Rfam assigns this 73-nucleotide RNA sequence to the family "tRNA". Rfam's curators write: Transfer RNA (tRNA) molecules are approximately 80 nucleotides in length. Gene Ontology term of the family: triplet codon-amino acid adaptor activity.

[Rfam]
RNA sequence: GUUGCAGUAGCAAAGCGGUUAAUGCGAGAAUCCUAAAAUUUCUUUAUCAGAGGUUCAAAUCCUCUCUCCAACU
Numbered sequence: 001g002u003u004g005c006a007g008u009a010g011c012a013a014a015g016c017g018g019u020u021a022a023u024g025c026g027a028g029a030a031u032c033c034u035a036a037a038a039u040u041u042c043u044u045u046a047u048c049a050g051a052g053g054u055u056c057a058a059a060u061c062c063u064c065u066c067u068c069c070a071a072c073u
Base pairs, nucleotide, nucleotide: 001072002071003070004069006067007066010025011024012023027043028042029041030040049065050064051063052062053061